[Rfam]
Rfam assigns this 103-nucleotide RNA sequence from Plutella xylostella to the family "mir-8517 microRNA precursor family". The match comes from Rfam's covariance-model search (83 bits). Pairs were carried over by alignment from the consensus structure, which was predicted with RNAalifold.

RNA sequence: UUACUGGAGGCUUUAGCUAUUGAACUGUUCUGUUACUCUGACAGAAAACAAUUUGUUCUUUGACAGAGUUACAAAACAGCUAAUAGCUAAAGCGUAAAGUAAG
Numbered sequence: 001u002u003a004c005u006g007g008a009g010g011c012u013u014u015a016g017c018u019a020u021u022g023a024a025c026u027g028u029u030c031u032g033u034u035a036c037u038c039u040g041a042c043a044g045a046a047a048a049c050a051a052u053u054u055g056u057u058c059u060u061u062g063a064c065a066g067a068g069u070u071a072c073a074a075a076a077c078a079g080c081u082a083a084u085a086g087c088u089a090a091a092g093c094g095u096a097a098a099g100u101a102a103g
Stems, first nucleotide, its partner, number of pairs: 001102005011092011023081001025079004029067007047057004